[Rfam]
RNA sequence: GUACCCGACUAAUCUGUUCUUUUUUGACUUCUUUUUUCUCCACUAGGCUUGGAGGCUUCUUCGUUUUCGAAAGAAAAGUCAAAAACGAACGGAAAGCCUCCCAAUGGGAGGUUUUUUUAU
Numbered sequence: 001g002u003a004c005c006c007g008a009c010u011a012a013u014c015u016g017u018u019c020u021u022u023u024u025u026g027a028c029u030u031c032u033u034u035u036u037u038c039u040c041c042a043c044u045a046g047g048c049u050u051g052g053a054g055g056c057u058u059c060u061u062c063g064u065u066u067u068c069g070a071a072a073g074a075a076a077a078g079u080c081a082a083a084a085a086c087g088a089a090c091g092g093a094a095a096g097c098c099u100c101c102c103a104a105u106g107g108g109a110g111g112u113u114u115u116u117u118u119a120u
Base pairs, nucleotide, nucleotide: 016090017089018088019087021085022084023083024082025081026080027079028078029077030076032074033073034072036070037069039053040052041051042050054065055064056063093115094114095113096112097111098110099109100108101107102106

Phenylalanine leader peptide: a 120-nucleotide RNA from Vibrio thalassae. Rfam links the family to the GO term cellular amino acid metabolic process. The family has 71 seed sequences and 379 matches in Rfam 15.1. It is annotated as a cis-regulatory leader. Pairs were carried over by alignment from the consensus structure, which was predicted with CMfinder.